[Rfam]
RNA sequence: UGUUAAAAAUUCAUUCAUUUUUAUUGUAAAAAGCUGGCGUGGCUAACAGAAUAACACGCUAUGUGUAUCUCAUUGUGAUGUAUAUGAAUCAAAUUUUAAUAGUAGAAAUUGAUGAUUUAGUA
Number, nucleotide and partner (000 for none) at each position: 001u000002g000003u000004u122005a121006a000007a000008a118009a000010u000011u115012c114013a113014u112015u111016c000017a109018u108019u107020u106021u105022u104023a103024u102025u101026g000027u099028a000029a097030a096031a095032a094033g000034c000035u000036g000037g000038c000039g000040u000041g000042g000043c000044u000045a000046a000047c000048a000049g000050a000051a000052u000053a000054a000055c000056a000057c000058g000059c000060u000061a000062u000063g000064u000065g000066u000067a000068u000069c000070u000071c000072a000073u000074u000075g000076u000077g000078a000079u000080g000081u000082a000083u000084a000085u000086g000087a000088a000089u000090c000091a000092a000093a000094u032095u031096u030097u029098a000099a027100u000101a025102g024103u023104a022105g021106a020107a019108a018109u017110u000111g015112a014113u013114g012115a011116u000117u000118u008119a000120g000121u005122a004
Source information: Rfam assigns this 122-nucleotide RNA sequence from Gossypium australe to the family "MIR7502 microRNA precursor family". Its family is annotated with RISC complex and miRNA-mediated post-transcriptional gene silencing in the Gene Ontology. Taxonomically the source falls in Gossypium (Eukaryota, Mesangiospermae, Pentapetalae, Malvales). It scores 74 bits against the family's covariance model. The base pairs follow the family's consensus structure, which was predicted with RNAalifold.